[Rfam]
RNA sequence: UGACAGCAAUGAUGCGGAAGGUUGCCGACACACCCGGCCGCUUUGCCAUGGCGAGUGUGGGGGAAAUUUCCGCGGAGUAUGUCUAUUUUUUAAAAAUAGGCGA
Numbered sequence: 001u002g003a004c005a006g007c008a009a010u011g012a013u014g015c016g017g018a019a020g021g022u023u024g025c026c027g028a029c030a031c032a033c034c035c036g037g038c039c040g041c042u043u044u045g046c047c048a049u050g051g052c053g054a055g056u057g058u059g060g061g062g063g064a065a066a067u068u069u070c071c072g073c074g075g076a077g078u079a080u081g082u083c084u085a086u087u088u089u090u091u092a093a094a095a096a097u098a099g100g101c102g103a
Base pairs, nucleotide, nucleotide: 014073015072016071019069020068021067025061026060028058029057030056031055080102081101082100083099086098088096089095
RNA: S10-Clostridia ribosomal protein leader